[Rfam]
RNA sequence: GCAUGGCUGAAUACUGUGUUCUUUUUAUCAGUAGUUUACACAGCCAGACACCAUGCAAAAGUAAAGUGUUCCCUUUAAAAUGCCUCUAAUGGUGUGCUAAGCUUUUUCAUAGCAUAUCAUUUUUAAAAGUGAAUACAAGU
Numbered sequence: 001g002c003a004u005g006g007c008u009g010a011a012u013a014c015u016g017u018g019u020u021c022u023u024u025u026u027a028u029c030a031g032u033a034g035u036u037u038a039c040a041c042a043g044c045c046a047g048a049c050a051c052c053a054u055g056c057a058a059a060a061g062u063a064a065a066g067u068g069u070u071c072c073c074u075u076u077a078a079a080a081u082g083c084c085u086c087u088a089a090u091g092g093u094g095u096g097c098u099a100a101g102c103u104u105u106u107u108c109a110u111a112g113c114a115u116a117u118c119a120u121u122u123u124u125a126a127a128a129g130u131g132a133a134u135a136c137a138a139g140u
Base pairs, nucleotide, nucleotide: 001056002055003054004053005052006051014043015042016041017040018039019038069133070132071131072129074127075126076125077124078123088121089120090119091118092117093116094115095114096113097112098111099110
The record is a 140-nucleotide RNA sequence from Canis lupus, which matches "Small nucleolar RNA SNORA15" in Rfam.
Gene Ontology terms of the family: RNA processing and nucleolus.
The family's consensus secondary structure was predicted with RNAfold.
A reference for the family is Huttenhofer et al. (2001), "RNomics: an experimental approach that identifies 201 candidates for novel, small, non-messenger RNAs in mouse", EMBO J.
Rfam classes the family as an H/ACA-box small nucleolar RNA.
About the family: ACA15 is a member of the H/ACA class of snoRNA that guide the sites of modification of uridines to pseudouridines.